[Rfam]
RNA sequence: AGGGUCUGGGAAAAGGCUGCUGUGUGGCUGGGCCCUUGGUGACGCAGUCUUGUACCAGCCAGCCUGAUCUCUUGCCCUAGAAUAAUCCUACACAGACUCCUUUCUGGAGUUUGCUCUGUGCAGUAGCAGGUGUGAGCAUUCUUGCAGCAUUUUGAUGGUCAUGUAUGAUACUGCAUACAAAA
Number, nucleotide and partner (000 for none) at each position: 001a000002g000003g077004g076005u000006c074007u000008g072009g071010g070011a000012a000013a000014a000015g064016g063017c062018u061019g059020c058021u057022g056023u000024g055025u054026g049027g048028c047029u046030g045031g000032g043033c000034c041035c000036u000037u000038g000039g000040u000041g034042a000043c032044g000045c030046a029047g028048u027049c026050u000051u000052g000053u000054a025055c024056c022057a021058g020059c019060c000061a018062g017063c016064c015065u000066g000067a000068u000069c000070u010071c009072u008073u000074g006075c000076c004077c003078u000079a000080g000081a000082a000083u000084a000085a000086u000087c000088c000089u109090a000091c107092a105093c000094a103095g102096a101097c000098u000099c000100c000101u096102u095103u094104c000105u092106g000107g091108a000109g089110u000111u000112u000113g000114c000115u000116c000117u177118g176119u175120g174121c173122a172123g171124u170125a169126g000127c167128a166129g000130g000131u000132g000133u161134g160135a159136g000137c157138a156139u155140u154141c000142u000143u000144g151145c000146a000147g000148c000149a000150u000151u144152u000153u000154g140155a139156u138157g137158g000159u135160c134161a133162u000163g000164u000165a000166u128167g127168a000169u125170a124171c123172u122173g121174c120175a119176u118177a117178c000179a000180a000181a000182a000
This 182-nucleotide RNA from Chelonoidis abingdonii belongs to the Rfam family "Small Cajal body specific RNA 16". scaRNAs are a specific class of small nuclear RNAs which localise to the Cajal bodies and guide the modification of RNA polymerase II transcribed spliceosomal RNAs U1, U2, U4, U5 and U12. ACA47 belongs to the H/ACA box class of guide RNAs as it has the predicted hairpin-hinge-hairpin-tail structure, the conserved H/ACA-box motifs and is found associated with GAR1. Its family is annotated with nucleolus and RNA processing in the Gene Ontology. The literature on the family includes a 2002 paper in EMBO J by Darzacq et al., "Cajal body-specific small nuclear RNAs: a novel class of 2'-O-methylation and pseudouridylation guide RNAs". The base pairs follow the family's consensus structure, which was predicted with RNAfold.